[Rfam]
RNA sequence: AUAUCUUUGAAGUUCAAUAUAUGAAUACAAUAACAGUAAAUACUUGGUGGUGGAAAAACUUACGUCAAAAGUCGUGAGCUAAGCACUAUUAGUAUACUCUAUAUACAAAGGCUUGUC
Numbered sequence: 001a002u003a004u005c006u007u008u009g010a011a012g013u014u015c016a017a018u019a020u021a022u023g024a025a026u027a028c029a030a031u032a033a034c035a036g037u038a039a040a041u042a043c044u045u046g047g048u049g050g051u052g053g054a055a056a057a058a059c060u061u062a063c064g065u066c067a068a069a070a071g072u073c074g075u076g077a078g079c080u081a082a083g084c085a086c087u088a089u090u091a092g093u094a095u096a097c098u099c100u101a102u103a104u105a106c107a108a109a110g111g112c113u114u115g116u117c
Stems, first nucleotide, its partner, number of pairs: 036099001040095005046089001049087004057080001059078003062072002
This 117-nucleotide RNA from Ulvibacter litoralis belongs to the Rfam family "Bacteroidete tryptophan peptide leader RNA". The source organism's lineage runs through Bacteria, Bacteroidota, Flavobacteriales, Flavobacteriaceae and Ulvibacter. Pairs were carried over by alignment from the consensus structure, which is taken from published work.